[Rfam]
RNA sequence: UGGUAGAUGCACCCUGAUUCACACCCCCUGGUCACCCGGGGGGUUUUCUGU
Numbered sequence: 001u002g003g004u005a006g007a008u009g010c011a012c013c014c015u016g017a018u019u020c021a022c023a024c025c026c027c028c029u030g031g032u033c034a035c036c037c038g039g040g041g042g043g044u045u046u047u048c049u050g051u
Base pairs, nucleotide, nucleotide: 002013003012004011024043025042026041027040028039029038030037031036

Nitrogen stress-induced RNA 1: a 51-nucleotide RNA sequence from Synechococcales cyanobacterium C42_A2020_086. It is annotated as a small RNA. For this family Rfam cites "Heterocyst-specific transcription of NsiR1, a non-coding RNA encoded in a tandem array of direct repeats in cyanobacteria" (Ionescu et al., J Mol Biol, 2010). Lineage of the source: Bacteria > Bacillati > Cyanobacteriota > Cyanophyceae > Synechococcales.